Description: A member of the RNA family "SucA RNA motif" from Cupriavidus basilensis, 83 nucleotides long. Its family is annotated with regulation of translation in the Gene Ontology. By type it is a cis-regulatory element. Pairs were carried over by alignment from the consensus structure, which is taken from published work.

[Rfam]
RNA sequence: UUGCAAUCCGCUAACCGGUCAAGCCGUGUCGCGGAAGGUUGAUGAACCCGCUUUAUUCCGGCAUUCCCGGAUAAUAGUGAGCG
Numbered sequence: 001u002u003g004c005a006a007u008c009c010g011c012u013a014a015c016c017g018g019u020c021a022a023g024c025c026g027u028g029u030c031g032c033g034g035a036a037g038g039u040u041g042a043u044g045a046a047c048c049c050g051c052u053u054u055a056u057u058c059c060g061g062c063a064u065u066c067c068c069g070g071a072u073a074a075u076a077g078u079g080a081g082c083g
Stems, first nucleotide, its partner, number of pairs: 002083003007035005016026004037048004049079004057071005